[Rfam]
RNA sequence: AGUGAGUGGCCAGCCAUAGAAGGAGCGUUCACGUCGCGGUCCCUGUCAGGUAUCUGUUUACCUGCGAAUCCUUCU
Dot-bracket structure: ............[[[..((((((((((.......)))]]...]...((((((......))))))....)))))))
Notes:
The family of this 75-nucleotide sequence from Laticauda laticaudata is "Mammalian CPEB3 ribozyme". It scores 60 bits against the family's covariance model.